Notes: Rfam assigns this 60-nucleotide RNA sequence from Gossypium aridum to the family "Plastid-psbN 5UTR RNA". The family's RNA type in Rfam is cis-regulatory element. Rfam's curators write: Plastid psbN is a non-coding RNA (ncRNA) recognised in plastids. It was reported as a conserved 11 stem-loop in the prime untranslated region (5UTR) of psbN genes. It has been reported that the motif is retained in a subset of mature transcripts in barley, which can suggests a possible role in transcript alternative 5 prime processing. Pairs were carried over by alignment from the consensus structure, which was predicted with LocARNA. The source organism's lineage runs through Eukaryota, Viridiplantae, Euphyllophyta, Gunneridae and Gossypium. On this family, see Richter et al., Plant Commun 2023: "Retrograde signaling in plants: A critical review focusing on the GUN pathway and beyond".
RNA sequence: UGCGACACCAAUCAAAGAAGUCGUUCCCCAUACAGGGCUACCUUACCAUAUUCCGAAUUC
Numbered sequence: 001u002g003c004g005a006c007a008c009c010a011a012u013c014a015a016a017g018a019a020g021u022c023g024u025u026c027c028c029c030a031u032a033c034a035g036g037g038c039u040a041c042c043u044u045a046c047c048a049u050a051u052u053c054c055g056a057a058u059u060c
Stems, first nucleotide, its partner, number of pairs: 017044002020041002023038002026036002
The family has 63 seed sequences and 2,345 matches in Rfam 15.1.